[Rfam]
RNA sequence: AAAAUGUGGAAACCAGCUACCACUCCAAAAAAACGGGGCGCUACCGAAAAGCCAAACGAGUAGGAAAUUA
Number, nucleotide and partner (000 for none) at each position: 001a000002a000003a000004a000005u000006g023007u022008g021009g020010a000011a000012a000013c000014c000015a000016g000017c000018u000019a000020c009021c008022a007023c006024u000025c000026c000027a000028a000029a000030a000031a000032a000033a000034c000035g000036g000037g053038g052039c051040g000041c000042u000043a000044c064045c063046g000047a000048a000049a000050a000051g039052c038053c037054a000055a000056a000057c000058g000059a000060g000061u000062a000063g045064g044065a000066a000067a000068u000069u000070a000

The record is a 70-nucleotide RNA from Flavobacterium cellulosilyticum, which matches "DUF805 RNA" in Rfam. Clan: DUF805 clan. A search with the family's covariance model found it, with a score of 76 bits. Lineage of the source: Bacteria > Pseudomonadati > Bacteroidota > Flavobacteriia > Flavobacterium.